Record summary: A member of the RNA family "Cyanobacterial functional RNA 17", 265 nucleotides long. The base pairs follow the family's consensus structure, which was predicted with mfold. A reference for the family is Steglich et al. (2008), "The challenge of regulation in a minimal photoautotroph: non-coding RNAs in Prochlorococcus", PLoS Genet.
RNA sequence: UAACUGAUCUUUGAUAUUAUCGUUUCAUGACAAAAUCCGCGGUACAUUUUUUACAAAAAAUACUAAUAUUUUAUUUCGCACAUAGAAAAUUAAAUUUAAUCUACAAGCUGUGGAAAAACCUGUUGAAAAAGGCUCAAAAAGUGGAUAACUUGCUGGGAUCAAGGUUAAAACUGGGUUUUUCGGAUGUUUUCCUAAGUAUUAAUACUUCAUCAAUAUAUGGUUAAAUAUAGUUUAAUAAUCAAUUAAACUAAUUGAAAUAACAAUG
Numbered sequence: 001u002a003a004c005u006g007a008u009c010u011u012u013g014a015u016a017u018u019a020u021c022g023u024u025u026c027a028u029g030a031c032a033a034a035a036u037c038c039g040c041g042g043u044a045c046a047u048u049u050u051u052u053a054c055a056a057a058a059a060a061u062a063c064u065a066a067u068a069u070u071u072u073a074u075u076u077c078g079c080a081c082a083u084a085g086a087a088a089a090u091u092a093a094a095u096u097u098a099a100u101c102u103a104c105a106a107g108c109u110g111u112g113g114a115a116a117a118a119c120c121u122g123u124u125g126a127a128a129a130a131g132g133c134u135c136a137a138a139a140a141g142u143g144g145a146u147a148a149c150u151u152g153c154u155g156g157g158a159u160c161a162a163g164g165u166u167a168a169a170a171c172u173g174g175g176u177u178u179u180u181c182g183g184a185u186g187u188u189u190u191c192c193u194a195a196g197u198a199u200u201a202a203u204a205c206u207u208c209a210u211c212a213a214u215a216u217a218u219g220g221u222u223a224a225a226u227a228u229a230g231u232u233u234a235a236u237a238a239u240c241a242a243u244u245a246a247a248c249u250a251a252u253u254g255a256a257a258u259a260a261c262a263a264u265g
Stems, first nucleotide, its partner, number of pairs: 007177001009175003013171001017167001019165003022159006036145005045132001047130006053123003070099002073096001075094002078091001100114005178257003183252001188246002193241001195239001197237006204231003209226002
Dot-bracket structure: ......(.(((.(...(.(((((((((........(((((....(.(((((((((..............((.(.((.(............).)).).))(((((.....)))))......))).)))))).)........)))))........))))))...))).)...).))).)(((..(....((...(.(.((((((.(((..((..............))..))))))))).).)...)).....)..)))........